Rfam assigns this 78-nucleotide RNA sequence from Crocodylus porosus to the family "Mammalian CPEB3 ribozyme".
The match comes from Rfam's covariance-model search (36 bits).
The organism belongs to Crocodylus, within Eukaryota.
Pairs were carried over by alignment from the consensus structure, which is taken from published work.

RNA sequence: GGUUGUAAAUCUGACACCAUAGCAGAAGCACUCAUGGUGCAACCCUGUCAGAUUUAAAUGAAUCUGCAAAAUUCUGCU
Numbered sequence: 001g002g003u004u005g006u007a008a009a010u011c012u013g014a015c016a017c018c019a020u021a022g023c024a025g026a027a028g029c030a031c032u033c034a035u036g037g038u039g040c041a042a043c044c045c046u047g048u049c050a051g052a053u054u055u056a057a058a059u060g061a062a063u064c065u066g067c068a069a070a071a072u073u074c075u076g077c078u
Stems, first nucleotide, its partner, number of pairs: 013045001021078007028040003049066007